[Rfam]
About this RNA:
A member of the RNA family "DUF3800-VIII RNA" from Bacillus velezensis, 66 nucleotides long. Rfam's curators write: Bacteroidetes, Cyanobacteria, Firmicutes, Planctomycetes (1 example), Proteobacteria, Tenericutes (1 example). Pairs were carried over by alignment from the consensus structure, which is taken from published work.
RNA sequence: UAUUCCCUGUCUAACCGAAGGCUUGCGUCCCAACGUGAGCUACUUACGUAGGUGAAACGGGGUUAG
Numbered sequence: 001u002a003u004u005c006c007c008u009g010u011c012u013a014a015c016c017g018a019a020g021g022c023u024u025g026c027g028u029c030c031c032a033a034c035g036u037g038a039g040c041u042a043c044u045u046a047c048g049u050a051g052g053u054g055a056a057a058c059g060g061g062g063u064u065a066g
Base pairs, nucleotide, nucleotide: 001066005062006061007060008059009058010057012055014053015052016051020041021040022039023038024037025036026035027034028033
Rfam's curators put it in the seed alignment.